[Rfam]
RNA sequence: GGCCUUUGUGUUGCCCAUUCAUUCCUGUCCAGAAUGGUUGUGGUGUCAAAAAAGGCAAACAUGAAUUCUUACACAAACUGCUUUAGGAAGCUGGUUGUGUACCUUCCUCCUCUGUUUUUGCAAGGACAAAA
Numbered sequence: 001g002g003c004c005u006u007u008g009u010g011u012u013g014c015c016c017a018u019u020c021a022u023u024c025c026u027g028u029c030c031a032g033a034a035u036g037g038u039u040g041u042g043g044u045g046u047c048a049a050a051a052a053a054g055g056c057a058a059a060c061a062u063g064a065a066u067u068c069u070u071a072c073a074c075a076a077a078c079u080g081c082u083u084u085a086g087g088a089a090g091c092u093g094g095u096u097g098u099g100u101a102c103c104u105u106c107c108u109c110c111u112c113u114g115u116u117u118u119u120g121c122a123a124g125g126a127c128a129a130a131a
Base pairs, nucleotide, nucleotide: 002056003055004054005053006052007051009048010047012045013044014043015042016040017039019037020036021035022034023033068124069123070122072120073119075117076116077115082114085111086110087109088108093102
Shown here is a 131-nucleotide RNA from Malurus elegans, a member of the family "Small nucleolar RNA SNORA13".
By type it is an H/ACA-box small nucleolar RNA.
Gene Ontology terms of the family: RNA processing and nucleolus.
About the family: ACA13 is a member of the H/ACA class of snoRNA that guide the sites of modification of uridines to pseudouridines.
It scores 74 bits against the family's covariance model.